[Rfam]
RNA sequence: AAUGCGGAAGCUGAAAAGCGUUUAGAGUAGGCA
Numbered sequence: 001a002a003u004g005c006g007g008a009a010g011c012u013g014a015a016a017a018g019c020g021u022u023u024a025g026a027g028u029a030g031g032c033a
Stems, first nucleotide, its partner, number of pairs: 002021004010032003
Dot-bracket structure: .((((....[[[.....))))........]]].